Makes More Granules Regulator RNA (mmgR): a 75-nucleotide RNA from Sphingomonas desiccabilis. It scores 46 bits against the family's covariance model. NCBI's taxonomy places the organism under Bacteria, Pseudomonadati, Pseudomonadota, Alphaproteobacteria, Sphingomonas. Its Rfam clan is "suhB sRNA clan".

RNA sequence: GGAACAGGCCUUUCAGGCAUCCUCUCCUAAACCUUUCACGGCCGGUCCUCGCGACCGGCCUUUUUUUUGCGCCUU
Numbered sequence: 001g002g003a004a005c006a007g008g009c010c011u012u013u014c015a016g017g018c019a020u021c022c023u024c025u026c027c028u029a030a031a032c033c034u035u036u037c038a039c040g041g042c043c044g045g046u047c048c049u050c051g052c053g054a055c056c057g058g059c060c061u062u063u064u065u066u067u068u069g070c071g072c073c074u075u
Stems, first nucleotide, its partner, number of pairs: 008018004040060008